A member of the RNA family "Xanthine riboswitch aptamer (NMT1 RNA)" from Paracidovorax valerianellae, 70 nucleotides long.
It scores 54 bits against the family's covariance model.
Taxonomically the source falls in Paracidovorax (Bacteria, Pseudomonadati, Pseudomonadota, Betaproteobacteria).
[Rfam]
RNA sequence: GGCAAGAGUAGAAGCGUUCAGCCCGAUGGCCUGCCCCGCGCAGUCCCGUCGGCGGGUCAUUGCUCUUGAA
Numbered sequence: 001g002g003c004a005a006g007a008g009u010a011g012a013a014g015c016g017u018u019c020a021g022c023c024c025g026a027u028g029g030c031c032u033g034c035c036c037c038g039c040g041c042a043g044u045c046c047c048g049u050c051g052g053c054g055g056g057u058c059a060u061u062g063c064u065c066u067u068g069a070a
Stems, first nucleotide, its partner, number of pairs: 005066006015055001019056001021053003025049001
A reference for the family is Yu and Breaker (2020), "A bacterial riboswitch class senses xanthine and uric acid to regulate genes associated with purine oxidation", RNA.